[Rfam]
This 167-nucleotide part of an RNA from Phaeocystis globosa belongs to the Rfam family "Eukaryotic small subunit ribosomal RNA".
RNA sequence: CCGCCCGUCGCUCCUACCGAUUGAAUGAUCCGGUGAGGCCCCCGGACUGGGGCGACGCAUUCGGUUCGCCGGACGCGACGCUCCGGGAAGCUGUCCAAACCUUAUUAUUUAGAGGAAGGAGAAGUCGUAACAAGGUUUCCGUAGGUGAACCUGCGGAAGGAUCAAGC
Numbered sequence: 001c002c003g004c005c006c007g008u009c010g011c012u013c014c015u016a017c018c019g020a021u022u023g024a025a026u027g028a029u030c031c032g033g034u035g036a037g038g039c040c041c042c043c044g045g046a047c048u049g050g051g052g053c054g055a056c057g058c059a060u061u062c063g064g065u066u067c068g069c070c071g072g073a074c075g076c077g078a079c080g081c082u083c084c085g086g087g088a089a090g091c092u093g094u095c096c097a098a099a100c101c102u103u104a105u106u107a108u109u110u111a112g113a114g115g116a117a118g119g120a121g122a123a124g125u126c127g128u129a130a131c132a133a134g135g136u137u138u139c140c141g142u143a144g145g146u147g148a149a150c151c152u153g154c155g156g157a158a159g160g161a162u163c164a165a166g167c
Base pairs, nucleotide, nucleotide: 001134003131006127007126009124011121012120013119014118015117017115018114021111023110024109025108026107027106028105029104032101033100034099037096038095040093043090047086048085049084050083051082052081053080054079056077057076060073061072062071136159137158138157139156140155141154142153143152144151145150
The source organism's lineage runs through Eukaryota, Haptophyta, Phaeocystales, Phaeocystaceae and Phaeocystis. Rfam's curators put it in the seed alignment.